RNA sequence: UGUGUUAACCAAGUCUUGCUGUCAAGGCUUAAUCAAGCUCUUGAGGGAAAGUCCCCGGACCAAUUGAGAGAGUCUUUUCUUUAACAAGAUUACAUUCUCAUUGAAUUCAAUUGCCGAGAAGAUGAAUCAAUCUGAGCCUAGUUGAAGUUCAAUGAAUUCAAUGGUCUACAUUGAAAGUAAAAUGCAAGAAGCAUUCCUAAUCAGGAAUGUCAACAGAAUGGGGCUUACUCUGGUUUAACAC
Numbered sequence: 001u002g003u004g005u006u007a008a009c010c011a012a013g014u015c016u017u018g019c020u021g022u023c024a025a026g027g028c029u030u031a032a033u034c035a036a037g038c039u040c041u042u043g044a045g046g047g048a049a050a051g052u053c054c055c056c057g058g059a060c061c062a063a064u065u066g067a068g069a070g071a072g073u074c075u076u077u078u079c080u081u082u083a084a085c086a087a088g089a090u091u092a093c094a095u096u097c098u099c100a101u102u103g104a105a106u107u108c109a110a111u112u113g114c115c116g117a118g119a120a121g122a123u124g125a126a127u128c129a130a131u132c133u134g135a136g137c138c139u140a141g142u143u144g145a146a147g148u149u150c151a152a153u154g155a156a157u158u159c160a161a162u163g164g165u166c167u168a169c170a171u172u173g174a175a176a177g178u179a180a181a182a183u184g185c186a187a188g189a190a191g192c193a194u195u196c197c198u199a200a201u202c203a204g205g206a207a208u209g210u211c212a213a214c215a216g217a218a219u220g221g222g223g224c225u226u227a228c229u230c231u232g233g234u235u236u237a238a239c240a241c
Stems, first nucleotide, its partner, number of pairs: 002241007009233003014189006022045001023043005049226003053223004066074002078089004094157002101152006107145004113137002121132003191210006
This 241-nucleotide sequence from Tetranychus urticae belongs to the Rfam family "RNase MRP". By type it is a ribozyme. The base pairs follow the family's consensus structure, which is taken from published work. It scores 97 bits against the family's covariance model. Gene Ontology terms of the family: ribonuclease MRP complex, ribonuclease MRP activity and rRNA processing.